The family of this 178-nucleotide RNA sequence from Gemella morbillorum is "Lysine riboswitch aptamer".
RNA sequence: AAGUGAGGUAGAGGUUGCGAUUUUUAUGAGUAAGAUGGUUGAAAGUGUAGGGCUUGAAGAAACUAUCCAAAAGGAAACGUCGCCGAAAUAAUAUUAAUCCUACGUUAAUAUUGUUGGGACUAUAUUGAAUAAGUAUAGGACUGUCAUAGUCGCGAGGCUAUGUUGCGCUACUAAUAAC
Numbered sequence: 001a002a003g004u005g006a007g008g009u010a011g012a013g014g015u016u017g018c019g020a021u022u023u024u025u026a027u028g029a030g031u032a033a034g035a036u037g038g039u040u041g042a043a044a045g046u047g048u049a050g051g052g053c054u055u056g057a058a059g060a061a062a063c064u065a066u067c068c069a070a071a072a073g074g075a076a077a078c079g080u081c082g083c084c085g086a087a088a089u090a091a092u093a094u095u096a097a098u099c100c101u102a103c104g105u106u107a108a109u110a111u112u113g114u115u116g117g118g119a120c121u122a123u124a125u126u127g128a129a130u131a132a133g134u135a136u137a138g139g140a141c142u143g144u145c146a147u148a149g150u151c152g153c154g155a156g157g158c159u160a161u162g163u164u165g166c167g168c169u170a171c172u173a174a175u176a177a178c
Stems, first nucleotide, its partner, number of pairs: 007172005017083005023077003034067007087115012116142002120138007145162006